RNA sequence: GAGAGGACGACCUCUCCUGAACCGCACUCGGGACGGCCCGG
Numbered sequence: 001g002a003g004a005g006g007a008c009g010a011c012c013u014c015u016c017c018u019g020a021a022c023c024g025c026a027c028u029c030g031g032g033a034c035g036g037c038c039c040g041g
Stems, first nucleotide, its partner, number of pairs: 001016006028041005

Rfam assigns this 41-nucleotide RNA from Spartobacteria bacterium LR76 to the family "Guanidine-II riboswitch aptamer (mini-ykkC)".
The source organism's lineage runs through Bacteria, Pseudomonadati, Verrucomicrobiota and Spartobacteria.